[Rfam]
RNA sequence: AACUUAUCAAGAAAGACUGAGGGAAAUGGCCCUGGGACGUCUUAGCAACCACCAGCAUAGGAGCGGUGCUACAUCCAUCCAAAAAAGGAAAGAUAAGUG
Dot-bracket structure: .(((((((....(((((...(((..[[[[)))......)))))((((.((.((......))...))))))...(]]]]((......))..)))))))).
SAM riboswitch aptamer (S box leader): a 99-nucleotide RNA sequence from Niabella drilacis. The source organism's lineage runs through Bacteria, Pseudomonadati, Chitinophagia, Chitinophagaceae and Niabella. From the family's description: The SAM riboswitch is found upstream of a number of genes which code for proteins involved in methionine or cysteine biosynthesis in Gram-positive bacteria. Pairs were carried over by alignment from the consensus structure, which is taken from published work.